[Rfam]
Nucleotides: 143
Base pairs, nucleotide, nucleotide: 001046002045003044004043006015017040018039022038023037024036025035027033050064051063052062053061073089074088075087076086077085078084095108096107097106098105117138118137119136120135121134122133123132124131125130
Number, partner (000 for none) and nucleotide at each position: 001046g002045a003044g004043c005000g006015g007000a008000a009000a010000u011000u012000a013000a014000c015006c016000a017040u018039u019000c020000a021000u022038u023037a024036a025035u026000c027033u028000u029000a030000a031000g032000a033027a034000u035025g036024u037023u038022a039018a040017a041000u042000a043004g044003u045002u046001u047000a048000c049000a050064u051063c052062c053061a054000g055000u056000u057000c058000g059000g060000c061053u062052g063051g064050a065000u066000u067000c068000u069000u070000a071000c072000c073089g074088a075087g076086u077085g078084g079000u080000u081000u082000a083000g084078c085077c086076a087075c088074u089073c090000u091000g092000u093000u094000u095108g096107a097106c098105g099000c100000c101000u102000c103000c104000c105098u106097g107096u108095u109000a110000a111000a112000c113000u114000c115000c116000u117138g118137a119136g120135a121134g122133c123132c124131g125130c126000c127000c128000u129000u130125g131124c132123g133122g134121c135120u136119c137118u138117u139000u140000u141000u142000u143000u